mir-9/mir-79 microRNA precursor family: a 76-nucleotide sequence from Drosophila grimshawi. The family's consensus secondary structure was predicted with RNAalifold. Rfam's curators put it in the seed alignment. NCBI's taxonomy places the organism under Eukaryota, Metazoa, Drosophilidae, Drosophilinae, Hawaiian Drosophila.
[Rfam]
RNA sequence: UUGCCGUCGCUUUGGCGCUUUAGCUGUAUGAUAGAUUUGAAUACUUCAUAAAGCUAGAUUACCAAAGCAUCGGCGC
Dot-bracket structure: .(((.(..(((((((.(.(((((((.(((((..............))))).))))))).).)))))))..).))).